This 93-nucleotide sequence from Tetracentron sinense belongs to the Rfam family "mir-172 microRNA precursor family". NCBI's taxonomy places the organism under Eukaryota, Streptophyta, Tracheophyta, Magnoliopsida, Tetracentron. Pairs were carried over by alignment from the consensus structure, which was predicted with PFOLD. Gene Ontology terms of the family: miRNA-mediated post-transcriptional gene silencing and RISC complex. Rfam describes the family as follows. mir-172 has been experimentally verified in Arabidopsis thaliana. For this family Rfam cites "Short RNAs can identify new candidate transposable element families in Arabidopsis" (Mette et al., Plant Physiol, 2002). The match comes from Rfam's covariance-model search (72 bits).
RNA sequence: UUUAUUGCCGAUGCAGCAUCAUCAAGAUUCUCAUACUCAGAACUAGCUUAGGGCAUUGCAUGUGAAUCUUGAUGAUGCUACAUCCACAAACAA
Numbered sequence: 001u002u003u004a005u006u007g008c009c010g011a012u013g014c015a016g017c018a019u020c021a022u023c024a025a026g027a028u029u030c031u032c033a034u035a036c037u038c039a040g041a042a043c044u045a046g047c048u049u050a051g052g053g054c055a056u057u058g059c060a061u062g063u064g065a066a067u068c069u070u071g072a073u074g075a076u077g078c079u080a081c082a083u084c085c086a087c088a089a090a091c092a093a
Base pairs, nucleotide, nucleotide: 010084011083012082013081015079016078017077018076019075020074021073022072023071024070025069026068027067028066029065030064032062033061